[Rfam]
RNA sequence: GACCGCGUGUGACAACGAGAAGGAGCACGCUAGUGCACAACCAUGGCCGCCGCCAUAGCUUGCGAACCGGCGUGCUCUCUCUCGUUGUCAACCAACG
Numbered sequence: 001g002a003c004c005g006c007g008u009g010u011g012a013c014a015a016c017g018a019g020a021a022g023g024a025g026c027a028c029g030c031u032a033g034u035g036c037a038c039a040a041c042c043a044u045g046g047c048c049g050c051c052g053c054c055a056u057a058g059c060u061u062g063c064g065a066a067c068c069g070g071c072g073u074g075c076u077c078u079c080u081c082u083c084g085u086u087g088u089c090a091a092c093c094a095a096c097g
Stems, first nucleotide, its partner, number of pairs: 010090005016084002020080001023077001025075007033067002
Shown here is a 97-nucleotide RNA sequence from Musa balbisiana, a member of the family "MIR535 microRNA precursor family". The match comes from Rfam's covariance-model search (64 bits). The organism belongs to Musa, within Eukaryota.